Guanidine-II riboswitch aptamer (mini-ykkC): a 51-nucleotide RNA sequence from Pseudomonas oryzae. The source organism's lineage runs through Bacteria, Gammaproteobacteria, Pseudomonadales, Pseudomonadaceae and Pseudomonas. A search with the family's covariance model found it, with a score of 38 bits.
[Rfam]
Nucleotides: 051
Stems, first nucleotide, its partner, number of pairs: 003018006039050004
Number, partner (000 for none) and nucleotide at each position: 001000c002000u003018g004017u005016g006015a007014g008013g009000a010000c011000g012000a013008c014007c015006u016005c017004a018003c019000c020000a021000c022000u023000c024000g025000u026000c027000g028000a029000g030000u031000g032000a033000g034000c035000c036000c037000c038000c039050g040049g041048g042047g043000a044000c045000g046000g047042c048041c049040c050039c051000u